[Rfam]
RNA sequence: UUAACUGUGAAGUUAGGACUGAAGAAAGCGAGACUACAAAACUCGGUACUGACGAACAGGAACCGUAUACAGAGGCAUAUUUACUUGGGUAAGCAAGCACAUCAUUGUAACGCCCCAAGAACACCAAAAGGGUAGAUAUGUAGAUACGGCAGGGAUCGAGCGAAAGAAGAUGUU
Numbered sequence: 001u002u003a004a005c006u007g008u009g010a011a012g013u014u015a016g017g018a019c020u021g022a023a024g025a026a027a028g029c030g031a032g033a034c035u036a037c038a039a040a041a042c043u044c045g046g047u048a049c050u051g052a053c054g055a056a057c058a059g060g061a062a063c064c065g066u067a068u069a070c071a072g073a074g075g076c077a078u079a080u081u082u083a084c085u086u087g088g089g090u091a092a093g094c095a096a097g098c099a100c101a102u103c104a105u106u107g108u109a110a111c112g113c114c115c116c117a118a119g120a121a122c123a124c125c126a127a128a129a130g131g132g133u134a135g136a137u138a139u140g141u142a143g144a145u146a147c148g149g150c151a152g153g154g155a156u157c158g159a160g161c162g163a164a165a166g167a168a169g170a171u172g173u174u
Stems, first nucleotide, its partner, number of pairs: 001016006028174001031171001037166001042160005047154001049152003063149006075141003079137007087115004093108004

Background:
The family of this 174-nucleotide sequence from Maribacter hydrothermalis is "Group II catalytic intron D1-D4-3". Its family is annotated with Group II intron splicing in the Gene Ontology. Rfam describes the family as follows. Group II introns are found in rRNA, tRNA and mRNA of organelles in fungi, plants and protists, and also in mRNA in bacteria. The pairing is the family consensus, mapped onto this sequence. The organism belongs to Maribacter, within Bacteria. A search with the family's covariance model found it, with a score of 121 bits.